Annotation: Rfam assigns this 89-nucleotide RNA from Ceratodon purpureus to the family "Small nucleolar RNA Z159/U59". Gene Ontology terms of the family: RNA processing and nucleolus. By type it is a C/D-box small nucleolar RNA. A reference for the family is Chen et al. (2003), "The high diversity of snoRNAs in plants: identification and comparative study of 120 snoRNA genes from Oryza sativa", Nucleic Acids Res. A search with the family's covariance model found it, with a score of 52 bits. The family's consensus secondary structure was predicted with PFOLD.

RNA sequence: UGUUCUUGUGAUGAUCAAACAAAUACUUUCGUUCUACCUAUUUGCGUCAAGCAUUGAGGAAACUAUUUGGAGACCUGAACUGAGGAAAG
Numbered sequence: 001u002g003u004u005c006u007u008g009u010g011a012u013g014a015u016c017a018a019a020c021a022a023a024u025a026c027u028u029u030c031g032u033u034c035u036a037c038c039u040a041u042u043u044g045c046g047u048c049a050a051g052c053a054u055u056g057a058g059g060a061a062a063c064u065a066u067u068u069g070g071a072g073a074c075c076u077g078a079a080c081u082g083a084g085g086a087a088a089g
Base pairs, nucleotide, nucleotide: 003087004086005085006084